[Rfam]
RNA sequence: GCAUGAAUCCAUUCACUCGGAUCGUCCGGCACGUACCUGCCGGUGAAGGAGCACAAC
Numbered sequence: 001g002c003a004u005g006a007a008u009c010c011a012u013u014c015a016c017u018c019g020g021a022u023c024g025u026c027c028g029g030c031a032c033g034u035a036c037c038u039g040c041c042g043g044u045g046a047a048g049g050a051g052c053a054c055a056a057c
Base pairs, nucleotide, nucleotide: 009049010048012047013046014045015044026043027042028041029040030039031038
The record is a 57-nucleotide sequence from Mycetocola manganoxydans, which matches "msiK RNA" in Rfam. Pairs were carried over by alignment from the consensus structure, which is taken from published work. The source organism's lineage runs through Bacteria, Actinomycetota, Micrococcales, Microbacteriaceae and Mycetocola.